[Rfam]
RNA sequence: CCUUCGCUGAUGAGGGAAGGUUUUGACUUUCGUUCUUCUGAGCGUGCUGAAGCCACCUGAGUGCCCUGAGGAGG
Numbered sequence: 001c002c003u004u005c006g007c008u009g010a011u012g013a014g015g016g017a018a019g020g021u022u023u024u025g026a027c028u029u030u031c032g033u034u035c036u037u038c039u040g041a042g043c044g045u046g047c048u049g050a051a052g053c054c055a056c057c058u059g060a061g062u063g064c065c066c067u068g069a070g071g072a073g074g
Stems, first nucleotide, its partner, number of pairs: 001074003005070001
RNA: Small nucleolar RNA SNORD59